[Rfam]
RNA: mir-29 microRNA precursor family
Organism: Drosophila pseudoobscura
RNA sequence: GAAGAACUGAGAUCGAUUGGUGCAUAGAUAUCAAGAGGACUCGCUAAUUUUCAACUCUAGCACCAUUCGAAAUCAGUGCUUU
Numbered sequence: 001g002a003a004g005a006a007c008u009g010a011g012a013u014c015g016a017u018u019g020g021u022g023c024a025u026a027g028a029u030a031u032c033a034a035g036a037g038g039a040c041u042c043g044c045u046a047a048u049u050u051u052c053a054a055c056u057c058u059a060g061c062a063c064c065a066u067u068c069g070a071a072a073u074c075a076g077u078g079c080u081u082u
Stems, first nucleotide, its partner, number of pairs: 001082004005077001007076004013070003018065005025059004